[Rfam]
A member of the RNA family "Group II catalytic intron D1-D4-4" from Amycolatopsis jiangsuensis, 136 nucleotides long. On this family, see Bonen and Vogel, Trends Genet 2001: "The ins and outs of group II introns". Group II introns are found in rRNA, tRNA and mRNA of organelles in fungi, plants and protists, and also in mRNA in bacteria. Gene Ontology term of the family: Group II intron splicing. A search with the family's covariance model found it, with a score of 99 bits. The base pairs follow the family's consensus structure.

RNA sequence: CUGCCGGUGUGAGUCCGGUCCGGGUAGCUGUCAGGAGGCCCGGUAGCAGGCUGGCGGUCCGGUCUGGAAACGGGUCGGGUCGAAGCCCAGUGUCAAAAGCCCUGUUGGGGAAGCGACUGAGCGGUCCGUAGCAGAU
Numbered sequence: 001c002u003g004c005c006g007g008u009g010u011g012a013g014u015c016c017g018g019u020c021c022g023g024g025u026a027g028c029u030g031u032c033a034g035g036a037g038g039c040c041c042g043g044u045a046g047c048a049g050g051c052u053g054g055c056g057g058u059c060c061g062g063u064c065u066g067g068a069a070a071c072g073g074g075u076c077g078g079g080u081c082g083a084a085g086c087c088c089a090g091u092g093u094c095a096a097a098a099g100c101c102c103u104g105u106u107g108g109g110g111a112a113g114c115g116a117c118u119g120a121g122c123g124g125u126c127c128g129u130a131g132c133a134g135a136u
Stems, first nucleotide, its partner, number of pairs: 020043005050091005055082006064073001066071001100110002103108001113129003